Background:
Rfam assigns this 355-nucleotide part of an RNA from uncultured bacterium 70 to the family "Bacterial small subunit ribosomal RNA". Rfam's curators put it in the seed alignment. Pairs were carried over by alignment from the consensus structure, which is taken from published work.

RNA sequence: GGCGUAAAGGGCUCGUAGGCGGCCAACUAAGUCAGACGUGAAAUCCCUCGGCUUAACCGGGGAACUGCGUCUGAUACUGGAUGGCUUGAGGUUGGGAGAGGGAUGCGGAAUUCCAGGUGUAGCGGUGAAAUGCGUAGAUAUCUGGAGGAACACCGGUGGCGAAGGCGGCAUCCUGGACCAAUUCUGACGCUGAGGAGCGAAAGCCAGGGGAGCAAACGGGAUUAGAUACCCCGGUAGUCCUGGCCCUAAACGAUGAAUGCUUGGUGUGGCGGGUAUCGAUCCCUGCCGUGCCGAAGCUAACGCAUUAAGCAUUCCGCCUGGGGAGUACGGUCGCAAGGCUGAAACUCAAAGGAAU
Numbered sequence: 001g002g003c004g005u006a007a008a009g010g011g012c013u014c015g016u017a018g019g020c021g022g023c024c025a026a027c028u029a030a031g032u033c034a035g036a037c038g039u040g041a042a043a044u045c046c047c048u049c050g051g052c053u054u055a056a057c058c059g060g061g062g063a064a065c066u067g068c069g070u071c072u073g074a075u076a077c078u079g080g081a082u083g084g085c086u087u088g089a090g091g092u093u094g095g096g097a098g099a100g101g102g103a104u105g106c107g108g109a110a111u112u113c114c115a116g117g118u119g120u121a122g123c124g125g126u127g128a129a130a131u132g133c134g135u136a137g138a139u140a141u142c143u144g145g146a147g148g149a150a151c152a153c154c155g156g157u158g159g160c161g162a163a164g165g166c167g168g169c170a171u172c173c174u175g176g177a178c179c180a181a182u183u184c185u186g187a188c189g190c191u192g193a194g195g196a197g198c199g200a201a202a203g204c205c206a207g208g209g210g211a212g213c214a215a216a217c218g219g220g221a222u223u224a225g226a227u228a229c230c231c232c233g234g235u236a237g238u239c240c241u242g243g244c245c246c247u248a249a250a251c252g253a254u255g256a257a258u259g260c261u262u263g264g265u266g267u268g269g270c271g272g273g274u275a276u277c278g279a280u281c282c283c284u285g286c287c288g289u290g291c292c293g294a295a296g297c298u299a300a301c302g303c304a305u306u307a308a309g310c311a312u313u314c315c316g317c318c319u320g321g322g323g324a325g326u327a328c329g330g331u332c333g334c335a336a337g338g339c340u341g342a343a344a345c346u347c348a349a350a351g352g353a354a355u
Stems, first nucleotide, its partner, number of pairs: 001318003009315001011198004016192001018191003022085004027080002030078002032074009046062006089185003092181004100174007107151001111147008122133003159166002203244006212238002217233004255314006263292011296303002320347003329340004